[Rfam]
RNA sequence: UUGCGAGUAAGUCCUAUCCGAGGCAAUGAUGCCCGCGCUUGUGGGAUGGGAGUAUUAGAAUAGGGAUCGCGA
Numbered sequence: 001u002u003g004c005g006a007g008u009a010a011g012u013c014c015u016a017u018c019c020g021a022g023g024c025a026a027u028g029a030u031g032c033c034c035g036c037g038c039u040u041g042u043g044g045g046a047u048g049g050g051a052g053u054a055u056u057a058g059a060a061u062a063g064g065g066a067u068c069g070c071g072a
Base pairs, nucleotide, nucleotide: 001072002071003070004069005068006067012065013064014063015062016061017060019058032045033044034043035042036041
Dot-bracket structure: ((((((.....((((((.(............(((((....)))))............).)))))).))))))